The family of this 143-nucleotide RNA sequence from Anoxybacillus sp. B7M1 is "ylbH leader". Gene Ontology term of the family: regulation of gene expression. Pairs were carried over by alignment from the consensus structure. The literature on the family includes a 2004 paper in Proc Natl Acad Sci U S A by Barrick et al., "New RNA motifs suggest an expanded scope for riboswitches in bacterial genetic control". It is annotated as a cis-regulatory leader. This family is a putative regulatory RNA structure that is found upstream of the ylbH gene in B. subtilis and related low GC Gram-positive bacteria. It scores 101 bits against the family's covariance model.

[Rfam]
RNA sequence: AUAAAAAAAUCCCUGCAGUUUUCCUGCAGGGCCUUUUAUGCUUAAUGGUUCCUGCGCAUCGAAAAGGAACGCAUAAGCUAAAGGAAAAGGGAGAGGAGAAACCGGAGGAAGAACUUAUGGGGAAACGUAAGUCUUCUCCGUGA
Numbered sequence: 001a002u003a004a005a006a007a008a009a010u011c012c013c014u015g016c017a018g019u020u021u022u023c024c025u026g027c028a029g030g031g032c033c034u035u036u037u038a039u040g041c042u043u044a045a046u047g048g049u050u051c052c053u054g055c056g057c058a059u060c061g062a063a064a065a066g067g068a069a070c071g072c073a074u075a076a077g078c079u080a081a082a083g084g085a086a087a088a089g090g091g092a093g094a095g096g097a098g099a100a101a102c103c104g105g106a107g108g109a110a111g112a113a114c115u116u117a118u119g120g121g122g123a124a125a126c127g128u129a130a131g132u133c134u135u136c137u138c139c140g141u142g143a
Stems, first nucleotide, its partner, number of pairs: 011031008032091005040078005103140004108136004113132005